[Rfam]
RNA: Small nucleolar RNA Z247
Organism: Panicum miliaceum
RNA sequence: CCCCUUGGGGAUGAGGAGUUCAACUCCUAUGUCCUCAUCGGUCUAGGAUCCGACUACAACCCGCUGGUAACCUCAAUUGUUACUUGCAUAGAGCCAAUCUCGUUCACUGAACUGCAGGCCCAGAUCAUCAGCUUUGAGC
Numbered sequence: 001c002c003c004c005u006u007g008g009g010g011a012u013g014a015g016g017a018g019u020u021c022a023a024c025u026c027c028u029a030u031g032u033c034c035u036c037a038u039c040g041g042u043c044u045a046g047g048a049u050c051c052g053a054c055u056a057c058a059a060c061c062c063g064c065u066g067g068u069a070a071c072c073u074c075a076a077u078u079g080u081u082a083c084u085u086g087c088a089u090a091g092a093g094c095c096a097a098u099c100u101c102g103u104u105c106a107c108u109g110a111a112c113u114g115c116a117g118g119c120c121c122a123g124a125u126c127a128u129c130a131g132c133u134u135u136g137a138g139c
Base pairs, nucleotide, nucleotide: 004138005137006136007135008134088108091105092104093103